[Rfam]
RNA sequence: CACAUCGGUCCGGAGUUGAUGGGUUACCCAGUCAUUCUUCUGCUUGCAGGAGAGCCCGGUGUCCUUGUGAUGCCAAACCCGUGUUCCUAACAGAAUACAAACCCUUCCCAUCGACACCAACUUGACCGUUGU
Numbered sequence: 001c002a003c004a005u006c007g008g009u010c011c012g013g014a015g016u017u018g019a020u021g022g023g024u025u026a027c028c029c030a031g032u033c034a035u036u037c038u039u040c041u042g043c044u045u046g047c048a049g050g051a052g053a054g055c056c057c058g059g060u061g062u063c064c065u066u067g068u069g070a071u072g073c074c075a076a077a078c079c080c081g082u083g084u085u086c087c088u089a090a091c092a093g094a095a096u097a098c099a100a101a102c103c104c105u106u107c108c109c110a111u112c113g114a115c116a117c118c119a120a121c122u123u124g125a126c127c128g129u130u131g132u
Stems, first nucleotide, its partner, number of pairs: 002132003006128005012118002015115009036053007060072004081098006
A member of the RNA family "Nematode sRNA ceN72-3_ceN74-2" from Caenorhabditis elegans, 132 nucleotides long. Taxonomically the source falls in Caenorhabditis (Eukaryota, Eumetazoa, Chromadorea, Rhabditida).